[Rfam]
Shown here is a 141-nucleotide RNA from Phyllostomus discolor, a member of the family "Small nucleolar RNA SNORA4". The family is grouped with related families in Rfam's "SNORA4 clan".
RNA sequence: CUCCCAAAAGUAUUUUUUAGGGGAAGGUUUUUUUAAUAACCUUUACCAACUUGGGCUAUUUGGGAGAAUAAAUGAAGACCACACUCCACAGUGGGCUAUAUCAUUGAACAUAUAGUUCACUACUAUUUUGUGGCCUACAUU
Numbered sequence: 001c002u003c004c005c006a007a008a009a010g011u012a013u014u015u016u017u018u019a020g021g022g023g024a025a026g027g028u029u030u031u032u033u034u035a036a037u038a039a040c041c042u043u044u045a046c047c048a049a050c051u052u053g054g055g056c057u058a059u060u061u062g063g064g065a066g067a068a069u070a071a072a073u074g075a076a077g078a079c080c081a082c083a084c085u086c087c088a089c090a091g092u093g094g095g096c097u098a099u100a101u102c103a104u105u106g107a108a109c110a111u112a113u114a115g116u117u118c119a120c121u122a123c124u125a126u127u128u129u130g131u132g133g134c135c136u137a138c139a140u141u
Stems, first nucleotide, its partner, number of pairs: 004063005011058002014055003019051002022047002025044001026041004076136002079133005090121012
Notes
Rfam links the family to the GO terms nucleolus and RNA processing. Rfam 15.1 lists 290 matches to the family in 136 species. The family's consensus secondary structure was predicted with PFOLD. The family's RNA type in Rfam is H/ACA-box small nucleolar RNA. ACA4 is a member of the H/ACA class of snoRNA that guide the sites of modification of uridines to pseudouridines.